[Rfam]
This 74-nucleotide RNA sequence from Acipenser ruthenus belongs to the Rfam family "mir-133 microRNA precursor family". On this family, see Lagos-Quintana et al., Curr Biol 2002: "Identification of tissue-specific microRNAs from mouse". Gene Ontology terms of the family: miRNA-mediated post-transcriptional gene silencing and RISC complex. The match comes from Rfam's covariance-model search (71 bits). Rfam's curators write: mir-133 was first experimentally characterised in mouse and homologues have since been discovered in several other species. The mature sequence is excised from the 3' arm of the hairpin. The base pairs follow the family's consensus structure, which was predicted with PFOLD.
RNA sequence: UUGCUGUGGCUGGUCAAACGGAACCAAGUCAGGCGUUUCAGUGAGGUUUGGUCCCCUUCAACCAGUUACAGCUG
Numbered sequence: 001u002u003g004c005u006g007u008g009g010c011u012g013g014u015c016a017a018a019c020g021g022a023a024c025c026a027a028g029u030c031a032g033g034c035g036u037u038u039c040a041g042u043g044a045g046g047u048u049u050g051g052u053c054c055c056c057u058u059c060a061a062c063c064a065g066u067u068a069c070a071g072c073u074g
Stems, first nucleotide, its partner, number of pairs: 003072004008067007017058002020054003024051007